[Rfam]
RNA sequence: CAUGCCCCUAGAGGCGUUACACACAUGGCUGUCAUGCCAUGUGUGUGUCAUUAGGUGGCAGAGAGGAAGAGGCUGCGUCUACGCUCAGUGUUCUGAAACCUGUGAGCACUCAGAAUGAUUAGUAGCCUGACAUU
Numbered sequence: 001c002a003u004g005c006c007c008c009u010a011g012a013g014g015c016g017u018u019a020c021a022c023a024c025a026u027g028g029c030u031g032u033c034a035u036g037c038c039a040u041g042u043g044u045g046u047g048u049c050a051u052u053a054g055g056u057g058g059c060a061g062a063g064a065g066g067a068a069g070a071g072g073c074u075g076c077g078u079c080u081a082c083g084c085u086c087a088g089u090g091u092u093c094u095g096a097a098a099c100c101u102g103u104g105a106g107c108a109c110u111c112a113g114a115a116u117g118a119u120u121a122g123u124a125g126c127c128u129g130a131c132a133u134u
Stems, first nucleotide, its partner, number of pairs: 003060004007055005013049003019046004024041006070128007082117002085114002088111001089108005

The family of this 134-nucleotide RNA from Chelydra serpentina is "Small nucleolar RNA SNORA17". The family is grouped with related families in Rfam's "SNORA17 clan". The organism belongs to Chelydra, within Eukaryota. From the family's description: snoRNA ACA 17 belongs to the H/ACA family of snoRNAs and is predicted to guide pseudouridylation of the 28S rRNA at positions U4659 and U4598. It shares the same host gene together with ACA43. For this family Rfam cites "Mapping to nucleotide resolution of pseudouridine residues in large subunit ribosomal RNAs from representative eukaryotes, prokaryotes, archaebacteria, mitochondria and chloroplasts" (Ofengand and Bakin, J Mol Biol, 1997). Its family is annotated with RNA processing and nucleolus in the Gene Ontology. A search with the family's covariance model found it, with a score of 115 bits. Rfam classes the family as an H/ACA-box small nucleolar RNA.